A member of the RNA family "mir-5928 microRNA precursor family" from Haemonchus placei, 75 nucleotides long.

[Rfam]
RNA sequence: CGCAUAAACUUGAAGAAGAGUAGUUUAGUAGGGUCAGCCGAUCCUACUGAUCUACUCCACUUCAAGUUUGGGCCC
Numbered sequence: 001c002g003c004a005u006a007a008a009c010u011u012g013a014a015g016a017a018g019a020g021u022a023g024u025u026u027a028g029u030a031g032g033g034u035c036a037g038c039c040g041a042u043c044c045u046a047c048u049g050a051u052c053u054a055c056u057c058c059a060c061u062u063c064a065a066g067u068u069u070g071g072g073c074c075c
Base pairs, nucleotide, nucleotide: 002073003072005070006069007068008067009066011064012063013062014061015060018057019056020055021054022053023052025050026049027048028047029046030045032043033042034041035040
The base pairs follow the family's consensus structure, which was predicted with RNAalifold. Lineage of the source: Eukaryota > Opisthokonta > Ecdysozoa > Rhabditida > Haemonchus. The match comes from Rfam's covariance-model search (68 bits).